RNA sequence: GACUUAUAUUCAGUGGCAAGCUUAACCGUAUAGGGUAGGCGUAGCGAAAGCGAGUCUUAAUAGGGCGUUUAGUCGCUGGGUAUAGACCCGAAACCGGGCGAUCUAUCCAUGAGCAGGUUGAAGGUUAGGUAACACUGACUGGAGGACCGAACCCACUCCCGUUGAAAAGGUAGGGGAUGACUUGUGGAUCGGAGUGAAAGGCUAAUCAAGCUCGGAGAUAGCUGGUU
Numbered sequence: 001g002a003c004u005u006a007u008a009u010u011c012a013g014u015g016g017c018a019a020g021c022u023u024a025a026c027c028g029u030a031u032a033g034g035g036u037a038g039g040c041g042u043a044g045c046g047a048a049a050g051c052g053a054g055u056c057u058u059a060a061u062a063g064g065g066c067g068u069u070u071a072g073u074c075g076c077u078g079g080g081u082a083u084a085g086a087c088c089c090g091a092a093a094c095c096g097g098g099c100g101a102u103c104u105a106u107c108c109a110u111g112a113g114c115a116g117g118u119u120g121a122a123g124g125u126u127a128g129g130u131a132a133c134a135c136u137g138a139c140u141g142g143a144g145g146a147c148c149g150a151a152c153c154c155a156c157u158c159c160c161g162u163u164g165a166a167a168a169g170g171u172a173g174g175g176g177a178u179g180a181c182u183u184g185u186g187g188a189u190c191g192g193a194g195u196g197a198a199a200g201g202c203u204a205a206u207c208a209a210g211c212u213c214g215g216a217g218a219u220a221g222c223u224g225g226u227u
Stems, first nucleotide, its partner, number of pairs: 005084013020040004026034002044051002054066004087225002090222001094215006103191001105189009114179001116148004123140006152176003156173002159170002193203003
The record is a 227-nucleotide part of an RNA from Pseudomonas aeruginosa, which matches "Bacterial large subunit ribosomal RNA" in Rfam. Rfam's curators put it in the seed alignment. Gene Ontology terms of the family: structural constituent of ribosome and ribosome. Taxonomically the source falls in Pseudomonas aeruginosa (Bacteria, Pseudomonadati, Gammaproteobacteria, Pseudomonadaceae).